Pseudomonas sRNA P31: a 79-nucleotide sequence.
Rfam classes the family as a small RNA.
For this family Rfam cites "Identification of 17 Pseudomonas aeruginosa sRNAs and prediction of sRNA-encoding genes in 10 diverse pathogens using the bioinformatic tool sRNAPredict2" (Livny et al., Nucleic Acids Res, 2006).
RNA sequence: AGAAGACCUCCCUUAGAUCUGAAACUUGCACAAACGCAGGUUGUAAAAAAGCGGGAUGACGUAUUGACCGUCACCCCGC
Numbered sequence: 001a002g003a004a005g006a007c008c009u010c011c012c013u014u015a016g017a018u019c020u021g022a023a024a025c026u027u028g029c030a031c032a033a034a035c036g037c038a039g040g041u042u043g044u045a046a047a048a049a050a051g052c053g054g055g056a057u058g059a060c061g062u063a064u065u066g067a068c069c070g071u072c073a074c075c076c077c078g079c
Stems, first nucleotide, its partner, number of pairs: 005042001007040003051079004057073005